[Rfam]
Small nucleolar RNA ACA64: a 127-nucleotide sequence from Bucco capensis.
It scores 50 bits against the family's covariance model.
On this family, see Schattner et al., RNA 2006: "A computational screen for mammalian pseudouridylation guide H/ACA RNAs".
Rfam links the family to the GO terms RNA processing and nucleolus.
The family's RNA type in Rfam is H/ACA-box small nucleolar RNA.
The family has 30 seed sequences and 9,537 matches in Rfam 15.1.
RNA sequence: CUUUACAAGAAGGUUCUUCAGGGGUUUCUUGUGGCCCCUGGUGCGAUAACUGUGCCGACAGCAGAGGGAGCAUUAAACUCAUUGCCCACGGGAAAGUGUGGGGAGUGAUACCCAUGUUCCUAGAAUC
Dot-bracket structure: ....(((..(..((.(....((............))....).))..)...))).............(.(((((.....(((((...(((........)))...))))).....))))).).......